[Rfam]
RNA sequence: GCGUUAAUUUAGUAGCAUAUAAAUAGUAGCAUAUAUUUAUAUGCGGCUACUAUUUAUAUGCUACUAUUUAUAUGC
Numbered sequence: 001g002c003g004u005u006a007a008u009u010u011a012g013u014a015g016c017a018u019a020u021a022a023a024u025a026g027u028a029g030c031a032u033a034u035a036u037u038u039a040u041a042u043g044c045g046g047c048u049a050c051u052a053u054u055u056a057u058a059u060g061c062u063a064c065u066a067u068u069u070a071u072a073u074g075c
Stems, first nucleotide, its partner, number of pairs: 001075003007069001011065008022054008
Shown here is a 75-nucleotide sequence from Xenopus tropicalis, a member of the family "mir-16 microRNA precursor family".
Rfam links the family to the GO terms miRNA-mediated post-transcriptional gene silencing and RISC complex.
The organism belongs to Silurana, within Eukaryota.
For this family Rfam cites "Structural Basis for pri-miRNA Recognition by Drosha" (Jin et al., Mol Cell, 2020).